[Rfam]
RNA sequence: UUUUGCAUUCGGUUUACGGGCAAUAAUGCCGUUUCCUACCGCAUGCAGCAGGUGCGUUUUACCUAAACCCGUGCCGCCGUA
Numbered sequence: 001u002u003u004u005g006c007a008u009u010c011g012g013u014u015u016a017c018g019g020g021c022a023a024u025a026a027u028g029c030c031g032u033u034u035c036c037u038a039c040c041g042c043a044u045g046c047a048g049c050a051g052g053u054g055c056g057u058u059u060u061a062c063c064u065a066a067a068c069c070c071g072u073g074c075c076g077c078c079g080u081a
Base pairs, nucleotide, nucleotide: 004043005042006041009038011036012035016032017031018030020029021028051078052077053076054075056074057073061072062071
RNA: antisense RNA of dnaA mRNA
Organism: Kluyvera cryocrescens